[Rfam]
RNA sequence: GCUGACGUAGCUUAACUAAAGCAUAACACUGAAGCUGUUAAGACGGACCCUAGAAAGUCCCGCUAGCA
Dot-bracket structure: ((((.((..((((.....)))).(((((.......)))))....((((........)))))).)))).
RNA: tRNA